[Rfam]
RNA sequence: GCUUUCAACAUCCCCGUCCGCUGUCUUCUCAUUAGAAGUCAGGCAGGACUGAAGGC
Numbered sequence: 001g002c003u004u005u006c007a008a009c010a011u012c013c014c015c016g017u018c019c020g021c022u023g024u025c026u027u028c029u030c031a032u033u034a035g036a037a038g039u040c041a042g043g044c045a046g047g048a049c050u051g052a053a054g055g056c
Stems, first nucleotide, its partner, number of pairs: 001056007013042001016049004020044002025038005
RNA: nadA riboswitch